Shown here is a 58-nucleotide RNA sequence, a member of the family "L31-Actinobacteria ribosomal protein leader".

[Rfam]
Nucleotides: 058
Base pairs, nucleotide, nucleotide: 003058004057005056007053008052009051010050015047016046017045018044019043020042021041
Number, partner (000 for none) and nucleotide at each position: 001000u002000c003058g004057g005056u006000u007053c008052c009051g010050g011000u012000u013000c014000a015047c016046g017045c018044u019043c020042g021041a022000a023000g024000a025000c026000c027000u028000u029000u030000u031000g032000g033000g034000u035000c036000a037000g038000g039000g040000c041021u042020c043019g044018g045017g046016c047015g048000a049000c050010c051009c052008g053007g054000c055000g056005a057004c058003c
The family's RNA type in Rfam is cis-regulatory leader.
The family is grouped with related families in Rfam's "Ribosomal Protein L31 Leader clan".
The base pairs follow the family's consensus structure, which is taken from published work.